[Rfam]
RNA sequence: UCCCCCACAGUUCUCCGACUCACGUUUUCCGCAAGGAAUGUCUAUCGCAGGCCCCCUUCCCAUCUGGUUAGCCGCAAUAUGCCGCUCUCGAACCUGUAUCAGGAUCUCGUUAUGCCGCAGCUGGAUUAUUGUGGAUGCACCGCGACCUGGAGAGGUCGUACCAGGGCAGAAGGGUAACGCGUUUCGGAACUUAACCCUAAGAAGAUAU
Numbered sequence: 001u002c003c004c005c006c007a008c009a010g011u012u013c014u015c016c017g018a019c020u021c022a023c024g025u026u027u028u029c030c031g032c033a034a035g036g037a038a039u040g041u042c043u044a045u046c047g048c049a050g051g052c053c054c055c056c057u058u059c060c061c062a063u064c065u066g067g068u069u070a071g072c073c074g075c076a077a078u079a080u081g082c083c084g085c086u087c088u089c090g091a092a093c094c095u096g097u098a099u100c101a102g103g104a105u106c107u108c109g110u111u112a113u114g115c116c117g118c119a120g121c122u123g124g125a126u127u128a129u130u131g132u133g134g135a136u137g138c139a140c141c142g143c144g145a146c147c148u149g150g151a152g153a154g155g156u157c158g159u160a161c162c163a164g165g166g167c168a169g170a171a172g173g174g175u176a177a178c179g180c181g182u183u184u185c186g187g188a189a190c191u192u193a194a195c196c197c198u199a200a201g202a203a204g205a206u207a208u
Stems, first nucleotide, its partner, number of pairs: 009191003015187004
Rfam assigns this 208-nucleotide part of an RNA from Fusarium solani to the family "Ascomycota telomerase RNA". Rfam links the family to the GO terms telomerase activity, telomere maintenance via telomerase and telomerase catalytic core complex. It scores 357 bits against the family's covariance model. The organism belongs to Fusarium solani species complex, within Eukaryota. It is annotated as a non-coding RNA gene. Its Rfam clan is "Telomerase clan". Pairs were carried over by alignment from the consensus structure.